[Rfam]
RNA sequence: UUUACUAAAUGAAGACAUCCUCUGAAACCGAGCUGUGAGGAGGAUGUCUGAAGAAAUGUAAA
Numbered sequence: 001u002u003u004a005c006u007a008a009a010u011g012a013a014g015a016c017a018u019c020c021u022c023u024g025a026a027a028c029c030g031a032g033c034u035g036u037g038a039g040g041a042g043g044a045u046g047u048c049u050g051a052a053g054a055a056a057u058g059u060a061a062a
Base pairs, nucleotide, nucleotide: 001062002061003060004059005058014048015047016046017045018044019043020042021041022040023039028035

Selenocysteine insertion sequence 1: a 62-nucleotide RNA from Nothobranchius furzeri. It is annotated as a cis-regulatory element. Pairs were carried over by alignment from the consensus structure, which is taken from published work.